[Rfam]
RNA sequence: GGCCGACGACGUGACUGGCGCUAUCAAGGUGGAGUGCACCACCAGGGAGCGAGAUCGCCGUUCACCGUGCGCCUGGGUGAGCGGA
Numbered sequence: 001g002g003c004c005g006a007c008g009a010c011g012u013g014a015c016u017g018g019c020g021c022u023a024u025c026a027a028g029g030u031g032g033a034g035u036g037c038a039c040c041a042c043c044a045g046g047g048a049g050c051g052a053g054a055u056c057g058c059c060g061u062u063c064a065c066c067g068u069g070c071g072c073c074u075g076g077g078u079g080a081g082c083g084g085a
Base pairs, nucleotide, nucleotide: 004057005056006055010051011050012049015046016045017073018072019071020070021069029042030041031040032039062080063079064078065077066076
Shown here is an 85-nucleotide RNA from Actinomadura barringtoniae, a member of the family "ZMP/ZTP riboswitch aptamer (pfl RNA motif)".
For this family Rfam cites "Recognition of the bacterial alarmone ZMP through long-distance association of two RNA subdomains" (Jones and Ferre-D'Amare, Nat Struct Mol Biol, 2015).
NCBI's taxonomy places the organism under Bacteria, Actinomycetota, Streptosporangiales, Thermomonosporaceae, Actinomadura.
Gene Ontology terms of the family: regulation of purine nucleotide biosynthetic process and one-carbon metabolic process.
Rfam 15.1 lists 3,295 matches to the family in 2,545 species.
The match comes from Rfam's covariance-model search (50 bits).